[Rfam]
RNA sequence: CUAUGUUGUUUUCUUUUGUUUAUAUCUUAUUCAUAGAGAGCAGA
Numbered sequence: 001c002u003a004u005g006u007u008g009u010u011u012u013c014u015u016u017u018g019u020u021u022a023u024a025u026c027u028u029a030u031u032c033a034u035a036g037a038g039a040g041c042a043g044a
Stems, first nucleotide, its partner, number of pairs: 006043006
RNA: Plastid-rpoB 5UTR RNA